[Rfam]
RNA: Small nucleolar RNA snR4
RNA sequence: AACUAUAACAGUCGAUGAGGAGAGGUUUUAGUUUCAUUAAACAUCCGUGCCCUAAUCAGGCGGAAGUCACCCUAGAUUUAAGUGAAUGCUUGCAUUCUAGUUUAUCAUGGGUCGAUGUGGAUUGUGCCGUGGCCGUUUCACCACCUUUAUAGCGGUGCUUUGACUAGCAAAAACUGAGGCUG
Numbered sequence: 001a002a003c004u005a006u007a008a009c010a011g012u013c014g015a016u017g018a019g020g021a022g023a024g025g026u027u028u029u030a031g032u033u034u035c036a037u038u039a040a041a042c043a044u045c046c047g048u049g050c051c052c053u054a055a056u057c058a059g060g061c062g063g064a065a066g067u068c069a070c071c072c073u074a075g076a077u078u079u080a081a082g083u084g085a086a087u088g089c090u091u092g093c094a095u096u097c098u099a100g101u102u103u104a105u106c107a108u109g110g111g112u113c114g115a116u117g118u119g120g121a122u123u124g125u126g127c128c129g130u131g132g133c134c135g136u137u138u139c140a141c142c143a144c145c146u147u148u149a150u151a152g153c154g155g156u157g158c159u160u161u162g163a164c165u166a167g168c169a170a171a172a173a174c175u176g177a178g179g180c181u182g
Stems, first nucleotide, its partner, number of pairs: 009182005016140005024134004029124005035119002042117004059068003069112004075106001076102001078100002084097005142157004